[Rfam]
RNA sequence: UCGAAGUUUCAUCUACCAAUGGAUAAAUUUUUUGUUUAGGUCAUACGAAUCGGAAACAAAGUAGCAAUACCCCCACGUCUUGCUUUAGAAGACAUGGGGUAUUGCUACCUG
Numbered sequence: 001u002c003g004a005a006g007u008u009u010c011a012u013c014u015a016c017c018a019a020u021g022g023a024u025a026a027a028u029u030u031u032u033u034g035u036u037u038a039g040g041u042c043a044u045a046c047g048a049a050u051c052g053g054a055a056a057c058a059a060a061g062u063a064g065c066a067a068u069a070c071c072c073c074c075a076c077g078u079c080u081u082g083c084u085u086u087a088g089a090a091g092a093c094a095u096g097g098g099g100u101a102u103u104g105c106u107a108c109c110u111g
Base pairs, nucleotide, nucleotide: 008023009022010021011020012019059110061108062107063106064105065104066103067102068101069100070099073097074096075095077093078092079091080090081089
Plastid-psbA-1 3UTR RNA: a 111-nucleotide RNA sequence from Musa balbisiana. Lineage of the source: Eukaryota > Viridiplantae > Embryophyta > Magnoliopsida > Musa. A reference for the family is Richter et al. (2023), "Retrograde signaling in plants: A critical review focusing on the GUN pathway and beyond", Plant Commun. By type it is a cis-regulatory element. From the family's description: Plastid psbA-1 is a non-coding RNA (ncRNA) present in plastids. It was identified in inverted repeat sequences in the 3 prime untranslate region (3UTR) of photosystem II quinone-binding protein (psbA).